[Rfam]
RNA sequence: AACCAGGGCCGCGGGCUGCUCCACUUCCACAGCCCCCGGUACCAAACAAAAGGAGGAAAACCCGCAGCGGCUUGCGGUGCGGCAGUGUGGAGACCUGCCGUAAAGUCCUCGGGGCCGUGCGCCCCGGGACGAGGUGGAGAGGGCGGAGGCCGCUCCAUCAAAGCCGAAGUGUAUGGCA
Number, nucleotide and partner (000 for none) at each position: 001a000002a000003c000004c000005a000006g042007g000008g040009c039010c038011g037012c000013g035014g034015g033016c032017u031018g030019c000020u000021c000022c000023a000024c000025u000026u000027c000028c000029a000030c018031a017032g016033c015034c014035c013036c000037c011038g010039g009040u008041a000042c006043c000044a000045a000046a000047c000048a000049a000050a000051a000052g000053g000054a000055g000056g000057a000058a000059a000060a000061c000062c077063c076064g075065c074066a000067g000068c166069g165070g164071c163072u162073u161074g065075c064076g063077g062078u102079g101080c100081g099082g098083c097084a096085g095086u000087g094088u093089g000090g000091a000092g000093a088094c087095c085096u084097g083098c082099c081100g080101u079102a078103a000104a000105g130106u129107c128108c127109u000110c126111g125112g124113g123114g000115c000116c000117g000118u000119g000120c000121g000122c000123c113124c112125c111126g110127g108128g107129a106130c105131g000132a000133g159134g158135u157136g156137g155138a154139g153140a000141g000142g151143g150144c149145g000146g000147a000148g000149g144150c143151c142152g000153c139154u138155c137156c136157a135158u134159c133160a000161a073162a072163g071164c070165c069166g068167a000168a000169g000170u000171g000172u000173a000174u000175g000176g000177c000178a000

Rfam assigns this 178-nucleotide RNA sequence from Oscillibacter sp. 1-3 to the family "malK-I RNA". NCBI's taxonomy places the organism under Bacteria, Bacillati, Bacillota, Oscillospiraceae, Oscillibacter. It is one of the family's seed sequences. The base pairs follow the family's consensus structure, which is taken from published work. It is annotated as a cis-regulatory element.